RNA sequence: GGCAAAAUGAGGAGAUUUUUUUAAUGGCUGAAUUUGAUGUGGAAUUCCUUUAUCAUUUAAUGGUCUUCAAUGUUCUCUGAUUGCU
Number, nucleotide and partner (000 for none) at each position: 001g085002g084003c083004a082005a081006a000007a000008u000009g000010a000011g000012g000013a000014g000015a000016u000017u000018u000019u000020u000021u000022u000023a000024a000025u000026g000027g000028c000029u000030g000031a000032a000033u000034u000035u000036g000037a000038u000039g000040u000041g000042g000043a000044a000045u000046u000047c000048c000049u000050u000051u000052a000053u000054c000055a000056u000057u000058u000059a000060a000061u000062g000063g000064u000065c000066u000067u000068c000069a000070a000071u000072g000073u000074u000075c000076u000077c000078u000079g000080a000081u005082u004083g003084c002085u001
This 85-nucleotide sequence from Hibiscus syriacus belongs to the Rfam family "Small nucleolar RNA R160".
Gene Ontology terms of the family: RNA processing and nucleolus.
NCBI's taxonomy places the organism under Eukaryota, eudicotyledons, Pentapetalae, malvids, Hibiscus.
snoR160 is a C/D box small nucleolar RNA, which acts as a methylation guide for 25S ribosomal RNA in plants. snoR160 has been alternatively named snoZ270 in rice.
The pairing is the family consensus, mapped onto this sequence.
The match comes from Rfam's covariance-model search (58 bits).